Nucleotides: 067
Stems, first nucleotide, its partner, number of pairs: 011049001013047005025039005053067005
Number, partner (000 for none) and nucleotide at each position: 001000a002000g003000a004000g005000a006000c007000g008000g009000a010000a011049g012000a013047a014046c015045g016044g017043c018000u019000a020000a021000g022000a023000u024000c025039g026038c027037c028036a029035c030000g031000u032000c033000c034000c035029g036028u037027g038026g039025c040000a041000a042000c043017g044016c045015c046014g047013u048000c049011c050000u051000g052000a053067c054066c055065u056064g057063c058000a059000u060000c061000c062000u063057g064056c065055a066054g067053g
A member of the RNA family "Bacillaceae-1 RNA" from Lederbergia citrea, 67 nucleotides long. The family's RNA type in Rfam is small RNA. The family's consensus secondary structure is taken from published work. Lineage of the source: Bacteria > Bacillati > Bacillota > Bacillaceae > Lederbergia.